[Rfam]
RNA sequence: CUAAAUGUUUUCUAGGGUUCCGCACGUUGUGGUCUGGACCGAGAGAGAACUCGUAAUAGUCAUUAUUACGUCACGGAAGGAUAAAAGCCUGGGAGAU
Numbered sequence: 001c002u003a004a005a006u007g008u009u010u011u012c013u014a015g016g017g018u019u020c021c022g023c024a025c026g027u028u029g030u031g032g033u034c035u036g037g038a039c040c041g042a043g044a045g046a047g048a049a050c051u052c053g054u055a056a057u058a059g060u061c062a063u064u065a066u067u068a069c070g071u072c073a074c075g076g077a078a079g080g081a082u083a084a085a086a087g088c089c090u091g092g093g094a095g096a097u
Stems, first nucleotide, its partner, number of pairs: 007050006015040002020037002022034001023031003052070007072092001074095001078090003
Background:
The family of this 97-nucleotide RNA sequence from Vagococcus allomyrinae is "Guanidine-I riboswitch aptamer". It scores 81 bits against the family's covariance model.